[Rfam]
RNA sequence: AACGACCGGUCGGGCAUUCACGUGCCCGGCCCACAAGUGGAGGCUCCGCUCUCCCACCUGGCCGCUCCUAGGAGUGGCGGGUCACCGGUCAGGCGGUCAUGUCGAGAGACAUGGCACGCCCGAAGUCACGCCCCGCGAUGUGUCGCGGCGGUGUUCCGGUAUGCAAGGAGCCCCGCCCGUGAUCGUCCGGGGCAUUUUUC
Numbered sequence: 001a002a003c004g005a006c007c008g009g010u011c012g013g014g015c016a017u018u019c020a021c022g023u024g025c026c027c028g029g030c031c032c033a034c035a036a037g038u039g040g041a042g043g044c045u046c047c048g049c050u051c052u053c054c055c056a057c058c059u060g061g062c063c064g065c066u067c068c069u070a071g072g073a074g075u076g077g078c079g080g081g082u083c084a085c086c087g088g089u090c091a092g093g094c095g096g097u098c099a100u101g102u103c104g105a106g107a108g109a110c111a112u113g114g115c116a117c118g119c120c121c122g123a124a125g126u127c128a129c130g131c132c133c134c135g136c137g138a139u140g141u142g143u144c145g146c147g148g149c150g151g152u153g154u155u156c157c158g159g160u161a162u163g164c165a166a167g168g169a170g171c172c173c174c175g176c177c178c179g180u181g182a183u184c185g186u187c188c189g190g191g192g193c194a195u196u197u198u199u200c
Stems, first nucleotide, its partner, number of pairs: 004090006012027002028083005034060002037057004041052002061078007092120004098113006130193006136185003144181003147177005153171005
Dot-bracket structure: ...((((((..((............))(((((.((.((((((........)).)))).))(((((((....)))))))))))).)))))).((((..((((((....))))))...)))).........(((((((((.....((((((((.(((((.........))))).))))).))).)))..)))))).......
Rfam assigns this 200-nucleotide sequence from Streptomyces uncialis to the family "Streptomyces RNA 1601". A search with the family's covariance model found it, with a score of 176 bits. Identified by deep sequencing of transcriptome at the end of exponential growth phase. Appears longer on northern blot than sequencing transcript. Streptomyces specific. Pairs were carried over by alignment from the consensus structure. A reference for the family is Vockenhuber et al. (2011), "Deep sequencing-based identification of small non-coding RNAs in Streptomyces coelicolor", RNA Biol.